[Rfam]
RNA sequence: CAAAUAUCAAUAGCACGACCUCAUAUAAUCUCAGGGAUAUGGCCUGAAAGUUUCUACCGAAUGACCGUAAAACUCGUUCGACUAUGAGGCAGACACCAUGCCAG
Numbered sequence: 001c002a003a004a005u006a007u008c009a010a011u012a013g014c015a016c017g018a019c020c021u022c023a024u025a026u027a028a029u030c031u032c033a034g035g036g037a038u039a040u041g042g043c044c045u046g047a048a049a050g051u052u053u054c055u056a057c058c059g060a061a062u063g064a065c066c067g068u069a070a071a072a073c074u075c076g077u078u079c080g081a082c083u084a085u086g087a088g089g090c091a092g093a094c095a096c097c098a099u100g101c102c103a104g
Stems, first nucleotide, its partner, number of pairs: 019089007029049001031047005058080007

Shown here is a 104-nucleotide sequence from Aneurinibacillus soli, a member of the family "Purine riboswitch aptamer".
NCBI's taxonomy places the organism under Bacteria, Bacillota, Bacilli, Caryophanales, Aneurinibacillus.
It scores 75 bits against the family's covariance model.